Shown here is a 172-nucleotide RNA from Polaribacter atrinae, a member of the family "Flavo-1 RNA". The family's RNA type in Rfam is small RNA. The match comes from Rfam's covariance-model search (54 bits).

[Rfam]
RNA sequence: AACUAGCUAGCGUUAGGGAUUGAAACGGCAUCCUUUUUAUAGCGCUUUUUAACAAGCGUUAUUGCGAGGAACGAAGCAAUCUGUUUAUUAAUUAUGAGAUUGCCACAGGUUACAAAAAAAGAAACUUAGCAAUGACAGCUAUAAAAAGAUAUAGUGGAAAGCCCGACCUUUA
Numbered sequence: 001a002a003c004u005a006g007c008u009a010g011c012g013u014u015a016g017g018g019a020u021u022g023a024a025a026c027g028g029c030a031u032c033c034u035u036u037u038u039a040u041a042g043c044g045c046u047u048u049u050u051a052a053c054a055a056g057c058g059u060u061a062u063u064g065c066g067a068g069g070a071a072c073g074a075a076g077c078a079a080u081c082u083g084u085u086u087a088u089u090a091a092u093u094a095u096g097a098g099a100u101u102g103c104c105a106c107a108g109g110u111u112a113c114a115a116a117a118a119a120a121g122a123a124a125c126u127u128a129g130c131a132a133u134g135a136c137a138g139c140u141a142u143a144a145a146a147a148g149a150u151a152u153a154g155u156g157g158a159a160a161g162c163c164c165g166a167c168c169u170u171u172a
Stems, first nucleotide, its partner, number of pairs: 016164003020160002025155002030150003036145008

Annotation: Lineage of the source: Bacteria > Pseudomonadati > Flavobacteriia > Flavobacteriales > Polaribacter. The family's consensus secondary structure is taken from published work.